RNA sequence: GAGUUGAGUAGAAGCGGUUAGAGCACUCCGGUGCUCGGGACAUUGCUCAUCUC
Numbered sequence: 001g002a003g004u005u006g007a008g009u010a011g012a013a014g015c016g017g018u019u020a021g022a023g024c025a026c027u028c029c030g031g032u033g034c035u036c037g038g039g040a041c042a043u044u045g046c047u048c049a050u051c052u053c
Stems, first nucleotide, its partner, number of pairs: 005049006015038001018040002021036006